[Rfam]
RNA sequence: UAAUAGUUGGCACUCCGAGCUGCAUGACCUAAAGUCAUCCAUGGUCUGGCAGUCUGAACGAUUUGUUCACGGGGUAGCGAAAGAAAUUUUGCUACCUCCCAAUCUCGGGAAGGAGGCGCUUCAUUAGUUUU
Numbered sequence: 001u002a003a004u005a006g007u008u009g010g011c012a013c014u015c016c017g018a019g020c021u022g023c024a025u026g027a028c029c030u031a032a033a034g035u036c037a038u039c040c041a042u043g044g045u046c047u048g049g050c051a052g053u054c055u056g057a058a059c060g061a062u063u064u065g066u067u068c069a070c071g072g073g074g075u076a077g078c079g080a081a082a083g084a085a086a087u088u089u090u091g092c093u094a095c096c097u098c099c100c101a102a103u104c105u106c107g108g109g110a111a112g113g114a115g116g117c118g119c120u121u122c123a124u125u126a127g128u129u130u131u
Base pairs, nucleotide, nucleotide: 003125006122013115014114015113016112019053020052021051022050023049026046027045028044029043034039055069056068057067058066059065072097073096074095075094076093077092078091079090080089081088082087098108099107
RNA: Molybdenum/Tungsten riboswitch aptamer (Moco RNA motif)
Organism: Sporomusa acidovorans